[Rfam]
RNA sequence: GUUAUGGGAGUGGAGCUCCUUGAAGUCCAACAGAAGAUCUAACAGGUUAGAUUGAGCUGCUGACCUAUGGAUUCCUCAGCACUAUCUAUUUAUGAUUUAACAUAUAGAUAGCUUUGUGGGUUUGCAUAUGUCAGGAGCUUUAUUUUACCCUUUGUUUGAUCAUUUUUUGGAUUGAAGGGAGCUCUACAUUCAUAUCUC
Numbered sequence: 001g002u003u004a005u006g007g008g009a010g011u012g013g014a015g016c017u018c019c020u021u022g023a024a025g026u027c028c029a030a031c032a033g034a035a036g037a038u039c040u041a042a043c044a045g046g047u048u049a050g051a052u053u054g055a056g057c058u059g060c061u062g063a064c065c066u067a068u069g070g071a072u073u074c075c076u077c078a079g080c081a082c083u084a085u086c087u088a089u090u091u092a093u094g095a096u097u098u099a100a101c102a103u104a105u106a107g108a109u110a111g112c113u114u115u116g117u118g119g120g121u122u123u124g125c126a127u128a129u130g131u132c133a134g135g136a137g138c139u140u141u142a143u144u145u146u147a148c149c150c151u152u153u154g155u156u157u158g159a160u161c162a163u164u165u166u167u168u169g170g171a172u173u174g175a176a177g178g179g180a181g182c183u184c185u186a187c188a189u190u191c192a193u194a195u196c197u198c
Base pairs, nucleotide, nucleotide: 013184014183015182016181017180018179019178020177024173025172026171027170028169029168036161057137058136060134061133062132066128067127068126069125074120
The family of this 198-nucleotide sequence from Solanum commersonii is "MIR159 microRNA precursor family".
The literature on the family includes a 2004 paper in Mol Cell by Jones-Rhoades and Bartel, "Computational identification of plant microRNAs and their targets, including a stress-induced miRNA".
The source organism's lineage runs through Eukaryota, Tracheophyta, Euphyllophyta, Gunneridae and Solanum.